[Rfam]
RNA sequence: UGCUCGUUACCAGGGCUUUUAGAAUACAGCUUCUCAUUCGCUGUGGACGUGACUACAAAAUGUUUUCCAACUAGGUUUUCUUUCUACUACAUUGGAAGCAUUCAGCUUAUUGGGAACAUUU
Numbered sequence: 001u002g003c004u005c006g007u008u009a010c011c012a013g014g015g016c017u018u019u020u021a022g023a024a025u026a027c028a029g030c031u032u033c034u035c036a037u038u039c040g041c042u043g044u045g046g047a048c049g050u051g052a053c054u055a056c057a058a059a060a061u062g063u064u065u066u067c068c069a070a071c072u073a074g075g076u077u078u079u080c081u082u083u084c085u086a087c088u089a090c091a092u093u094g095g096a097a098g099c100a101u102u103c104a105g106c107u108u109a110u111u112g113g114g115a116a117c118a119u120u121u
Stems, first nucleotide, its partner, number of pairs: 004052004010046003027040001029038001067114002070111001074107004085100001087098001